[Rfam]
RNA: RNase MRP
RNA sequence: UCAGGUUCUAAAAAUUGCAUUCAAAGCUACUAAAGAUAUUUACUAGGCUUUGGGGAAAGUCUCCGGUCGUGUGCGCAGAAAUGCCCCUGAGAAAGGUGCCAGUCCGAUUGUCUUGAUCAAGACUUUAGCUCUACGUGGAGCGGUUGGUUCAACUGGGACGCUUCGACGAGGAUGGCCUUUUGCCGUCAAACGAUAGAUAUGCAAUUGUCCGAAAGGAUAACCCAAUGGAGCUUAUUUAGAACUUC
Numbered sequence: 001u002c003a004g005g006u007u008c009u010a011a012a013a014a015u016u017g018c019a020u021u022c023a024a025a026g027c028u029a030c031u032a033a034a035g036a037u038a039u040u041u042a043c044u045a046g047g048c049u050u051u052g053g054g055g056a057a058a059g060u061c062u063c064c065g066g067u068c069g070u071g072u073g074c075g076c077a078g079a080a081a082u083g084c085c086c087c088u089g090a091g092a093a094a095g096g097u098g099c100c101a102g103u104c105c106g107a108u109u110g111u112c113u114u115g116a117u118c119a120a121g122a123c124u125u126u127a128g129c130u131c132u133a134c135g136u137g138g139a140g141c142g143g144u145u146g147g148u149u150c151a152a153c154u155g156g157g158a159c160g161c162u163u164c165g166a167c168g169a170g171g172a173u174g175g176c177c178u179u180u181u182g183c184c185g186u187c188a189a190a191c192g193a194u195a196g197a198u199a200u201g202c203a204a205u206u207g208u209c210c211g212a213a214a215g216g217a218u219a220a221c222c223c224a225a226u227g228g229a230g231c232u233u234a235u236u237u238a239g240a241a242c243u244u245c
Stems, first nucleotide, its partner, number of pairs: 003244009013206006021053007057233003061230004075084003093179003099175003103172003109168004114160002117157001143153004208217003